[Rfam]
RNA sequence: AAAGUGGCCUACGCCACCGCUAUGGACUGGUCAUCGCAGUCUGCUAUGCCUUC
Numbered sequence: 001a002a003a004g005u006g007g008c009c010u011a012c013g014c015c016a017c018c019g020c021u022a023u024g025g026a027c028u029g030g031u032c033a034u035c036g037c038a039g040u041c042u043g044c045u046a047u048g049c050c051u052u053c
Stems, first nucleotide, its partner, number of pairs: 002052002006050003010046002013044002016040002019037002022034004

A member of the RNA family "Editing element of GABA-3 exon 9" from Sphaeramia orbicularis, 53 nucleotides long. The family's RNA type in Rfam is cis-regulatory element. The literature on the family includes a 2007 paper in RNA by Ohlson et al., "Editing modifies the GABA(A) receptor subunit alpha3". The organism belongs to Sphaeramia, within Eukaryota.